[Rfam]
Nucleotides: 145
Stems, first nucleotide, its partner, number of pairs: 020052005026047003034042002084116003088111009130144003
Number, partner (000 for none) and nucleotide at each position: 001000a002000a003000c004000a005000u006000u007000g008000c009000g010000c011000a012000g013000a014000g015000g016000c017000a018000a019000u020052a021051u022050c023049g024048u025000a026047a027046c028045c029000a030000a031000u032000g033000a034042g035041g036000u037000u038000a039000a040000u041035c042034c043000g044000a045028g046027g047026u048024g049023c050022g051021a052020u053000u054000a055000u056000u057000g058000c059000u060000g061000g062000u063000u064000g065000a066000a067000a068000a069000c070000u071000u072000u073000a074000c075000c076000a077000a078000u079000a080000c081000g082000c083000c084116g085115c086114c087000a088111a089110g090109u091108g092107g093106a094105c095104g096103u097000g098000a099000a100000a101000u102000a103096a104095c105094g106093u107092c108091c109090g110089c111088u112000a113000c114086g115085g116084c117000a118000a119000u120000u121000u122000g123000u124000g125000u126000a127000c128000a129000g130144c131143u132142g133000u134000u135000g136000a137000g138000g139000c140000c141000a142132c143131a144130g145000a

Annotation: This 145-nucleotide RNA from Operophtera brumata belongs to the Rfam family "U4 spliceosomal RNA". The family's RNA type in Rfam is spliceosomal small nuclear RNA. From the family's description: U4 small nuclear RNA (U4 snRNA) is a component of the major U2-dependent spliceosome. The family's consensus secondary structure is taken from published work. Gene Ontology terms of the family: U4 snRNP and spliceosomal tri-snRNP complex assembly. Lineage of the source: Eukaryota > Eumetazoa > Mandibulata > Pancrustacea > Operophtera.